[Rfam]
Annotation:
A member of the RNA family "ASpks TB sRNA" from Streptomyces sp. VN1, 69 nucleotides long. The literature on the family includes a 2009 paper in Mol Microbiol by Arnvig and Young, "Identification of small RNAs in Mycobacterium tuberculosis". The family's RNA type in Rfam is antisense RNA.
RNA sequence: CUUGAGGGAGCCCAGCCACAGCGGCCGUUCCCGGUCCUGGCCGUAGGUGGUCAGAAUCGCCUGCGCCUC
Numbered sequence: 001c002u003u004g005a006g007g008g009a010g011c012c013c014a015g016c017c018a019c020a021g022c023g024g025c026c027g028u029u030c031c032c033g034g035u036c037c038u039g040g041c042c043g044u045a046g047g048u049g050g051u052c053a054g055a056a057u058c059g060c061c062u063g064c065g066c067c068u069c
Base pairs, nucleotide, nucleotide: 015025016024017023031065032059033058037054038053039052041050042049043048